[Rfam]
RNA sequence: GCCUGAAAAAGGCACACCACGCGAAAGCGUGGGCCGCAAAGCCACCGGCCUAAGUUGCCACAAGGCGAUACGGCAGCGGGGCUGCCAGC
Dot-bracket structure: ...........((...((((((....))))))...))..((((.((((((....((((......))))...)))..)))))))......
Numbered sequence: 001g002c003c004u005g006a007a008a009a010a011g012g013c014a015c016a017c018c019a020c021g022c023g024a025a026a027g028c029g030u031g032g033g034c035c036g037c038a039a040a041g042c043c044a045c046c047g048g049c050c051u052a053a054g055u056u057g058c059c060a061c062a063a064g065g066c067g068a069u070a071c072g073g074c075a076g077c078g079g080g081g082c083u084g085c086c087a088g089c
Stems, first nucleotide, its partner, number of pairs: 012037002017032006040083004045079003048074003055068004